[Rfam]
RNA sequence: UGUGUAAGAAGAGAGCUCUCUUCAGUCCACUCUCAGAUGGCUGUAGGGUUUUAUUAGCUGCCGAAUCAUCCAUUCACCUACCAGGAAAGUUGCAGGAGUGUAUCUCUUGGUAGCGGACUGGAUGACGCGGGAGCUAAAAUUUAGCUCUGCGCCGUUUGUGGUUGGACUGAAGGGUGCUCCCUUGCUC
Number, nucleotide and partner (000 for none) at each position: 001u000002g000003u000004g000005u000006a000007a000008g000009a000010a000011g000012a000013g179014a178015g177016c176017u000018c174019u173020c172021u000022u000023c169024a168025g167026u166027c165028c164029a163030c000031u000032c000033u000034c000035a000036g156037a000038u000039g000040g000041c000042u000043g000044u000045a000046g000047g000048g000049u000050u000051u000052u000053a000054u000055u000056a000057g000058c133059u132060g000061c130062c129063g128064a000065a000066u000067c124068a123069u122070c121071c000072a000073u000074u000075c116076a000077c000078c000079u000080a000081c000082c000083a000084g000085g000086a000087a000088a000089g000090u000091u000092g000093c000094a000095g000096g000097a000098g000099u000100g000101u000102a000103u000104c000105u000106c000107u000108u000109g000110g000111u000112a000113g000114c000115g000116g075117a000118c000119u000120g000121g070122a069123u068124g067125a000126c000127g000128c063129g062130g061131g000132a059133g058134c000135u000136a000137a000138a000139a000140u000141u000142u000143a000144g000145c000146u000147c000148u000149g000150c000151g000152c000153c000154g000155u000156u036157u000158g000159u000160g000161g000162u000163u029164g028165g027166a026167c025168u024169g023170a000171a000172g020173g019174g018175u000176g016177c015178u014179c013180c000181c000182u000183u000184g000185c000186u000187c000
This 187-nucleotide sequence from Oryza sativa belongs to the Rfam family "MIR159 microRNA precursor family". The sequence is in the family's curated seed alignment. Its family is annotated with RISC complex and miRNA-mediated post-transcriptional gene silencing in the Gene Ontology. NCBI's taxonomy places the organism under Eukaryota, Liliopsida, Petrosaviidae, Oryza, Oryza sativa. Pairs were carried over by alignment from the consensus structure, which was predicted with WAR. The literature on the family includes a 2006 paper in Genes Dev by Rajagopalan et al., "A diverse and evolutionarily fluid set of microRNAs in Arabidopsis thaliana". The family has 66 seed sequences and 3,649 matches in Rfam 15.1.